Rhizobiales sRNA Atu_At1: a 105-nucleotide RNA from Rhizobium etli. Pairs were carried over by alignment from the consensus structure, which was predicted with CMfinder. The organism belongs to Rhizobium etli, within Bacteria.
RNA sequence: UUGCGGGCCGCGCCAAGCGGACGCGGCGGUGCUGGAGAACAUCGGGAUUUUCCGCUUUCUCGGUGGCCGACGAAACGGCAGGCGAGCUCCCUACCCGCCCGGUCC
Numbered sequence: 001u002u003g004c005g006g007g008c009c010g011c012g013c014c015a016a017g018c019g020g021a022c023g024c025g026g027c028g029g030u031g032c033u034g035g036a037g038a039a040c041a042u043c044g045g046g047a048u049u050u051u052c053c054g055c056u057u058u059c060u061c062g063g064u065g066g067c068c069g070a071c072g073a074a075a076c077g078g079c080a081g082g083c084g085a086g087c088u089c090c091c092u093a094c095c096c097g098c099c100c101g102g103u104c105c
Base pairs, nucleotide, nucleotide: 006104007103008102009101011023012022014020025099026098027097028096029095034090035089036088037087040065041064042063043062044061045060046059066079067078068077
By type it is a small RNA.